[Rfam]
RNA sequence: AAGCUUGCAUUCAGAAUGGGGAAAUGUUAUAAGAUUUGUGUUGGCUCUAGCUAACUAUGACAAUAAACGAUGGAUGGAAUAAGUGUAGCGGACCCGGGGGCAGUACCCGGCGCCUCCACCAAUACCAAAGCGGCCUUUAAAAGGUUUGGCUUUCCAUGGGGGCGAAACAGGCUCGACGCGCACGGUAAAGAUUCAUUUUUUGUUCGGCAUUGUACCGCCGUUAUCGGGCUAAAUCGAUAAGUGCCAAUGAUAACUCUGAGGUGCUCGCUGUCGCUGCGUAAGCGAUAAGCGCGGUUUGGGAAGGCACCGGGCAACAGAAGCCUUCCCA
Numbered sequence: 001a002a003g004c005u006u007g008c009a010u011u012c013a014g015a016a017u018g019g020g021g022a023a024a025u026g027u028u029a030u031a032a033g034a035u036u037u038g039u040g041u042u043g044g045c046u047c048u049a050g051c052u053a054a055c056u057a058u059g060a061c062a063a064u065a066a067a068c069g070a071u072g073g074a075u076g077g078a079a080u081a082a083g084u085g086u087a088g089c090g091g092a093c094c095c096g097g098g099g100g101c102a103g104u105a106c107c108c109g110g111c112g113c114c115u116c117c118a119c120c121a122a123u124a125c126c127a128a129a130g131c132g133g134c135c136u137u138u139a140a141a142a143g144g145u146u147u148g149g150c151u152u153u154c155c156a157u158g159g160g161g162g163c164g165a166a167a168c169a170g171g172c173u174c175g176a177c178g179c180g181c182a183c184g185g186u187a188a189a190g191a192u193u194c195a196u197u198u199u200u201u202g203u204u205c206g207g208c209a210u211u212g213u214a215c216c217g218c219c220g221u222u223a224u225c226g227g228g229c230u231a232a233a234u235c236g237a238u239a240a241g242u243g244c245c246a247a248u249g250a251u252a253a254c255u256c257u258g259a260g261g262u263g264c265u266c267g268c269u270g271u272c273g274c275u276g277c278g279u280a281a282g283c284g285a286u287a288a289g290c291g292c293g294g295u296u297u298g299g300g301a302a303g304g305c306a307c308c309g310g311g312c313a314a315c316a317g318a319a320g321c322c323u324u325c326c327c328a
Stems, first nucleotide, its partner, number of pairs: 040055005059204005069197007084182003088179003094110005111164007205220004210231001212229001215227002292309004300325006
Rfam assigns this 328-nucleotide RNA from Formicincola oecophyllae to the family "Alphaproteobacteria transfer-messenger RNA". The literature on the family includes a 1996 paper in RNA by Williams and Bartel, "Phylogenetic analysis of tmRNA secondary structure". By type it is a non-coding RNA gene. Lineage of the source: Bacteria > Pseudomonadati > Alphaproteobacteria > Acetobacterales > Formicincola.